[Rfam]
RNA sequence: CCACCUUAAGGCCGCGCUCGCCAGCCUCGGCGGGGCGGCUCCCGGCGCCGCAACCAAUG
Numbered sequence: 001c002c003a004c005c006u007u008a009a010g011g012c013c014g015c016g017c018u019c020g021c022c023a024g025c026c027u028c029g030g031c032g033g034g035g036c037g038g039c040u041c042c043c044g045g046c047g048c049c050g051c052a053a054c055c056a057a058u059g
Stems, first nucleotide, its partner, number of pairs: 009027004014021002030051004034046001036044003
p27 cis-regulatory element: a 59-nucleotide RNA from Macaca fascicularis. Taxonomically the source falls in Macaca (Eukaryota, Craniata, Theria, Cercopithecoidea). Rfam's curators put it in the seed alignment. Rfam's curators write: This family represents a structured G/C rich element located in the 5' UTR of p27 mRNA. This element contributes to cell-cycle regulated translation and when deleted leads to a 50% drop in regulation. The element is thought to be able to form several different structures with similar free energy. On this family, see Gopfert et al., Hum Mol Genet 2003: "Cell cycle-dependent translation of p27 involves a responsive element in its 5'-UTR that overlaps with a uORF". The family's consensus secondary structure was predicted with PFOLD.